[Rfam]
RNA: Ribosomal S15 leader
Organism: Glaciecola punicea
RNA sequence: UUGCGAACCUGAAUUAGUGAUUGGGUUCGUUUCACAUUAUUUUUUGGAGAUAUUAUGUCACUAACUACAGUAGAAACAGCUAAAAUAAUUGCCGAGCACGGCCUUAAAGAA
Numbered sequence: 001u002u003g004c005g006a007a008c009c010u011g012a013a014u015u016a017g018u019g020a021u022u023g024g025g026u027u028c029g030u031u032u033c034a035c036a037u038u039a040u041u042u043u044u045u046g047g048a049g050a051u052a053u054u055a056u057g058u059c060a061c062u063a064a065c066u067a068c069a070g071u072a073g074a075a076a077c078a079g080c081u082a083a084a085a086u087a088a089u090u091g092c093c094g095a096g097c098a099c100g101g102c103c104u105u106a107a108a109g110a111a
Base pairs, nucleotide, nucleotide: 007026008025009024010023011022012021044064045063046062047061049059